[Rfam]
RNA sequence: CUAACGUGUGCAGGAGAGUGCCGCAUCCGGCUACGGUGCGGCCGCCGAAGGCGCAGACGCCCUUAAAUCGCUCAGGCAUCAGGGACUGCACGCUGCAA
Numbered sequence: 001c002u003a004a005c006g007u008g009u010g011c012a013g014g015a016g017a018g019u020g021c022c023g024c025a026u027c028c029g030g031c032u033a034c035g036g037u038g039c040g041g042c043c044g045c046c047g048a049a050g051g052c053g054c055a056g057a058c059g060c061c062c063u064u065a066a067a068u069c070g071c072u073c074a075g076g077c078a079u080c081a082g083g084g085a086c087u088g089c090a091c092g093c094u095g096c097a098a
Stems, first nucleotide, its partner, number of pairs: 006093008020042008044077003047073002051071003057064001

Rfam assigns this 98-nucleotide sequence from Neisseria chenwenguii to the family "Glycine riboswitch aptamer".
Taxonomically the source falls in Neisseria (Bacteria, Pseudomonadati, Neisseriales, Neisseriaceae).
Rfam links the family to the GO term glycine biosynthetic process.